[Rfam]
RNA sequence: UCUCCCGAGGAGCGUUGCGACAGCGCUGGUUGAUCCAGCGUUGCCAGGCUCGGGGCGGUGCGGCCAAACCUUGGCGGCGCCUGGCAACGGCGCUCACCCCCG
Number, nucleotide and partner (000 for none) at each position: 001u000002c000003u055004c054005c053006c052007g051008a050009g000010g000011a000012g000013c000014g000015u000016u000017g000018c000019g000020a000021c043022a042023g041024c040025g039026c038027u037028g036029g035030u000031u000032g000033a000034u000035c029036c028037a027038g026039c025040g024041u023042u022043g021044c000045c000046a000047g000048g000049c000050u008051c007052g006053g005054g004055g003056c000057g000058g000059u000060g000061c000062g000063g000064c000065c000066a000067a000068a000069c000070c000071u000072u000073g000074g000075c000076g000077g000078c000079g000080c000081c000082u000083g000084g000085c000086a000087a000088c000089g000090g000091c000092g000093c000094u000095c000096a000097c000098c000099c000100c000101c000102g000

A member of the RNA family "SAH (S-adenosyl-L-homocysteine) riboswitch aptamer" from Burkholderiales bacterium PBB4, 102 nucleotides long. The organism belongs to Burkholderiales, within Bacteria. A search with the family's covariance model found it, with a score of 56 bits.